Shown here is a 52-nucleotide RNA from Hyphomicrobium album, a member of the family "ffh sRNA".
A reference for the family is Meyer et al. (2009), "Identification of candidate structured RNAs in the marine organism 'Candidatus Pelagibacter ubique'", BMC Genomics.
The organism belongs to Hyphomicrobium, within Bacteria.
A search with the family's covariance model found it, with a score of 64 bits.
RNA sequence: AGGCCGGGAGGUCAACACCCGCCAGCGCGUUGCGCCCGCGGGUGCGAUUUUC
Numbered sequence: 001a002g003g004c005c006g007g008g009a010g011g012u013c014a015a016c017a018c019c020c021g022c023c024a025g026c027g028c029g030u031u032g033c034g035c036c037c038g039c040g041g042g043u044g045c046g047a048u049u050u051u052c
Base pairs, nucleotide, nucleotide: 016044017043018042019041020040021039022038025035026034027033028032